RNA sequence: CUCUCCUACAAAGGCAUGUCUGUAGAAACUUUCUUUGAAUUUGUAAGAAUUGGAGGCAAAGAAAUAUGGAUGUGGAGAUGUCUAGGGCCAGCUUAUUCCCCACAGACUCAAGGUCAACCAUCCCACUUGG
Numbered sequence: 001c002u003c004u005c006c007u008a009c010a011a012a013g014g015c016a017u018g019u020c021u022g023u024a025g026a027a028a029c030u031u032u033c034u035u036u037g038a039a040u041u042u043g044u045a046a047g048a049a050u051u052g053g054a055g056g057c058a059a060a061g062a063a064a065u066a067u068g069g070a071u072g073u074g075g076a077g078a079u080g081u082c083u084a085g086g087g088c089c090a091g092c093u094u095a096u097u098c099c100c101c102a103c104a105g106a107c108u109c110a111a112g113g114u115c116a117a118c119c120a121u122c123c124c125a126c127u128u129g130g
Base pairs, nucleotide, nucleotide: 002056003055004054005053006052015043016042018040019039021037024030025029068123069122070121090108091107093105094104096102